[Rfam]
This 80-nucleotide sequence from Nordella sp. HKS 07 belongs to the Rfam family "Makes More Granules Regulator RNA (mmgR)". Rfam classes the family as a small RNA. The match comes from Rfam's covariance-model search (60 bits). On this family, see Ceizel Borella et al., Microbiology 2018: "Expression of the small regulatory RNA gene mmgR is regulated negatively by AniA and positively by NtrC in Sinorhizobium meliloti 2011".
RNA sequence: CUCGCAUGCCCUUCCUGGGCGUUUCCUCCCUAGACUUGGGCCGGUUCACGAAAGUGAUACCGGCCUUUUUUCUUACUCGG
Numbered sequence: 001c002u003c004g005c006a007u008g009c010c011c012u013u014c015c016u017g018g019g020c021g022u023u024u025c026c027u028c029c030c031u032a033g034a035c036u037u038g039g040g041c042c043g044g045u046u047c048a049c050g051a052a053a054g055u056g057a058u059a060c061c062g063g064c065c066u067u068u069u070u071u072c073u074u075a076c077u078c079g080g
Base pairs, nucleotide, nucleotide: 008020009019010018011017039065040064041063042062043061044060045059046057047056048055049054

NCBI's taxonomy places the organism under Bacteria, Pseudomonadati, Alphaproteobacteria, Hyphomicrobiales, Nordella. About the family: SuhB later renamed mmgR (makes more granules regulator) was a putative non-coding RNA found multiple times in the Agrobacterium tumefaciens genome and related alpha-proteobacteria. Other non-coding RNAs uncovered in the same analysis include: speF, ybhL, metA, and serC.Several studies inSinorhizobium meliloti showed that suhB element is indeed a non-coding RNA:firstly it was detected on Northern blot and called Sm8RNA, secondly in an RNAseq study referred to as SmelC689.The mutant phenotype's (strain lacking the small RNA) cytoplasm contains higher content of polyhydroxybutyrate (PBH)storage granules than wild type strain. The sRNA is required to limit the PBH intracellular accumulation when the nitrogen-fixing Sinorhizobium meliloti is under condition of surplus carbon in relation to nitrogen. It has been renamed to mmgR. Further study confirmed that mmgR fine-tunes the regulation of PBH storage.Northern blot confirmed the expression of the sRNA in other rhizobia species.